[Rfam]
RNA sequence: GUCUUGCUCUGGGGGCUGUGUAAAUCAGCACCGGUGGUGAAAGUCCACGAGCGCUCGCCCAAUGGCGAGGGUUGAGCUGGUGAAAUUCCAGCACCGACGGUAAAAGUCCGGAUGGGAAGAGCCUUAG
Dot-bracket structure: .....(((((.....(((.......))).[[((((((.....[[))))..((..................))...(((((.......)))))]])).(((.....]]))).......))))).....
Numbered sequence: 001g002u003c004u005u006g007c008u009c010u011g012g013g014g015g016c017u018g019u020g021u022a023a024a025u026c027a028g029c030a031c032c033g034g035u036g037g038u039g040a041a042a043g044u045c046c047a048c049g050a051g052c053g054c055u056c057g058c059c060c061a062a063u064g065g066c067g068a069g070g071g072u073u074g075a076g077c078u079g080g081u082g083a084a085a086u087u088c089c090a091g092c093a094c095c096g097a098c099g100g101u102a103a104a105a106g107u108c109c110g111g112a113u114g115g116g117a118a119g120a121g122c123c124u125u126a127g
Stems, first nucleotide, its partner, number of pairs: 006122005016028003030107002032096002034048004043094002051072002076092005098110003
FMN riboswitch aptamer (RFN element): a 127-nucleotide RNA from Mobiluncus mulieris.
The RFN element is a highly conserved domain that is found frequently in the 5'-untranslated regions of prokaryotic mRNAs that encode for flavin mononucleotide (FMN) biosynthesis and transport proteins. This element is a metabolite-dependent riboswitch that directly binds FMN in the absence of proteins. In Bacillus subtilis, the riboswitch most likely controls gene expression by causing premature transcription termination within the 5' untranslated region of the ribDEAHT operon and precluding access to the ribosome-binding site of ypaA mRNA.The FMN riboswitch structure, reported in present an FMN-bound six-stem junction, adopts a butterfly-like scaffold, stapled together by opposingly directed but nearly identically folded peripheral domains.